Nucleotides: 117
Base pairs, nucleotide, nucleotide: 016100017099020096022094023093024092025091027089028088030086031085032084034082035081036080038078039077043073044072
Number, partner (000 for none) and nucleotide at each position: 001000a002000a003000a004000u005000u006000u007000g008000c009000a010000u011000g012000a013000g014000a015000g016100g017099g018000a019000g020096g021000a022094g023093g024092a025091a026000g027089a028088g029000a030086c031085a032084g033000c034082g035081c036080a037000c038078g039077g040000a041000u042000g043073g044072a045000a046000c047000u048000a049000c050000u051000a052000a053000u054000a055000g056000a057000g058000g059000a060000u061000c062000u063000g064000u065000u066000u067000u068000u069000g070000g071000u072044u073043c074000u075000a076000u077039c078038c079000a080036u081035g082034c083000a084032c085031u086030g087000c088028c089027u090000c091025u092024u093023c094022c095000c096020u097000g098000g099017c100016u101000a102000u103000u104000a105000u106000a107000u108000g109000c110000c111000u112000c113000u114000u115000g116000c117000u